[Rfam]
RNA sequence: GAGGUUAUUGGUAAAGUGCCCGCGACGGAGAGAACGGGCAGCAAGUAAAGACGCCGGUUUCCCUGUAUAAAAAUAGCUUCCUUGGGAGCUUGAGCCGCGCCAUCUCUGGCGCGGACACUUU
Numbered sequence: 001g002a003g004g005u006u007a008u009u010g011g012u013a014a015a016g017u018g019c020c021c022g023c024g025a026c027g028g029a030g031a032g033a034a035c036g037g038g039c040a041g042c043a044a045g046u047a048a049a050g051a052c053g054c055c056g057g058u059u060u061c062c063c064u065g066u067a068u069a070a071a072a073a074u075a076g077c078u079u080c081c082u083u084g085g086g087a088g089c090u091u092g093a094g095c096c097g098c099g100c101c102a103u104c105u106c107u108g109g110c111g112c113g114g115a116c117a118c119u120u121u
Stems, first nucleotide, its partner, number of pairs: 013121006020028003030091003041080001043078001045077001046075002095114008
Dot-bracket structure: ............((((((.(((...))).(((........(.(.(((..........................)).)).)........)))...((((((((....)))))))).))))))
A member of the RNA family "Yersinia sRNA 224" from Yersinia pestis, 121 nucleotides long. Its family is annotated with response to temperature stimulus in the Gene Ontology. The family has 5 seed sequences and 130 matches in Rfam 15.1. The match comes from Rfam's covariance-model search (77 bits).